[Rfam]
RNA: Small nucleolar RNA U54
Organism: Gossypium trilobum
RNA sequence: AGCUCUAUGAUUAAUCAGCCUAAUAUGGGCAAUAUACGCUAUUCCGAUUUGCAGAAAUGAGCAGGAAUUUUGAGAGAAAGAAUGAGAGCU
Numbered sequence: 001a002g003c004u005c006u007a008u009g010a011u012u013a014a015u016c017a018g019c020c021u022a023a024u025a026u027g028g029g030c031a032a033u034a035u036a037c038g039c040u041a042u043u044c045c046g047a048u049u050u051g052c053a054g055a056a057a058u059g060a061g062c063a064g065g066a067a068u069u070u071u072g073a074g075a076g077a078a079a080g081a082a083u084g085a086g087a088g089c090u
Stems, first nucleotide, its partner, number of pairs: 001090005